[Rfam]
Description:
This 311-nucleotide RNA sequence from Eleutherodactylus coqui belongs to the Rfam family "Nuclear RNase P".
RNA sequence: UGUGGCGAGAAGUUCAGUGCUGAGGCUCCAUGCAGAGUACUGUAGUUGCCCUUCAGCUACCCCCGGGGAAGGUCUCAGUUGAGGACUACAUGCUGCUUUCACAAAGCAUUGUUUGAAGAAAGCAAGUGAGUCCCCCAUCAGCCAGGGUCAGCUUGUAAAGUGAAAGAACCAGAAGUAGUCAGCACUCAGAAUACAGUACUGCUACAGAAAAACGGCCAAGUUUAGAAUUGUCUGACAGUUGACCAGUUUGGGCUCAAUGGCUGAGGAGGGUGCAGACUUUCCCAACUCAAUUCAGACUACUCUCCAAUAAA
Numbered sequence: 001u002g003u004g005g006c007g008a009g010a011a012g013u014u015c016a017g018u019g020c021u022g023a024g025g026c027u028c029c030a031u032g033c034a035g036a037g038u039a040c041u042g043u044a045g046u047u048g049c050c051c052u053u054c055a056g057c058u059a060c061c062c063c064c065g066g067g068g069a070a071g072g073u074c075u076c077a078g079u080u081g082a083g084g085a086c087u088a089c090a091u092g093c094u095g096c097u098u099u100c101a102c103a104a105a106g107c108a109u110u111g112u113u114u115g116a117a118g119a120a121a122g123c124a125a126g127u128g129a130g131u132c133c134c135c136c137a138u139c140a141g142c143c144a145g146g147g148u149c150a151g152c153u154u155g156u157a158a159a160g161u162g163a164a165a166g167a168a169c170c171a172g173a174a175g176u177a178g179u180c181a182g183c184a185c186u187c188a189g190a191a192u193a194c195a196g197u198a199c200u201g202c203u204a205c206a207g208a209a210a211a212a213c214g215g216c217c218a219a220g221u222u223u224a225g226a227a228u229u230g231u232c233u234g235a236c237a238g239u240u241g242a243c244c245a246g247u248u249u250g251g252g253c254u255c256a257a258u259g260g261c262u263g264a265g266g267a268g269g270g271u272g273c274a275g276a277c278u279u280u281c282c283c284a285a286c287u288c289a290a291u292u293c294a295g296a297c298u299a300c301u302c303u304c305c306a307a308u309a310a311a
Base pairs, nucleotide, nucleotide: 001311003309004308009304010303013265014264015263016262017261018260021065022064024062025061035051037049038048039047040045074295075294077292078291084240085239086238087237094108095107096106097105098104109125110124111123112122113121114120126236127235129233130232132230147221148220266283268281269280270279272277

It is annotated as a ribozyme.